[Rfam]
RNA: DUF3800-II RNA
RNA sequence: ACAACAAGCGAACGGAGACAAAUUCCUGUAGGAAAAGCUGAAGAGCUAUCCGUUUCGCUGGCC
Number, nucleotide and partner (000 for none) at each position: 001a000002c000003a000004a000005c000006a000007a059008g058009c057010g056011a000012a053013c052014g051015g050016a049017g000018a000019c000020a000021a000022a000023u034024u033025c032026c031027u000028g000029u000030a000031g026032g025033a024034a023035a000036a047037g046038c045039u044040g000041a000042a000043g000044a039045g038046c037047u036048a000049u016050c015051c014052g013053u012054u000055u000056c010057g009058c008059u007060g000061g000062c000063c000